The family of this 101-nucleotide sequence from Virgibacillus necropolis is "TPP riboswitch aptamer (THI element)". Vitamin B(1) in its active form thiamin pyrophosphate (TPP) is an essential coenzyme that is synthesised by coupling of pyrimidine and thiazole moieties in bacteria. A search with the family's covariance model found it, with a score of 82 bits. The organism belongs to Virgibacillus, within Bacteria. Its family is annotated with thiamine pyrophosphate binding in the Gene Ontology.

[Rfam]
RNA sequence: AAAGUCCACUAGGGGUGCCGCUUGGCUGAGAUAAGUAGAUUCUUAAUCCCUUUGAACCUGAUCUAGUUCAUACUAGCGUAGGAAAGUGGAGAUCGGUUGUA
Numbered sequence: 001a002a003a004g005u006c007c008a009c010u011a012g013g014g015g016u017g018c019c020g021c022u023u024g025g026c027u028g029a030g031a032u033a034a035g036u037a038g039a040u041u042c043u044u045a046a047u048c049c050c051u052u053u054g055a056a057c058c059u060g061a062u063c064u065a066g067u068u069c070a071u072a073c074u075a076g077c078g079u080a081g082g083a084a085a086g087u088g089g090a091g092a093u094c095g096g097u098u099g100u101a
Base pairs, nucleotide, nucleotide: 006089007088008087009086010085011051012050013049014048016045017026018025019024033044034043035042057082058081059080060079063076064075065074066073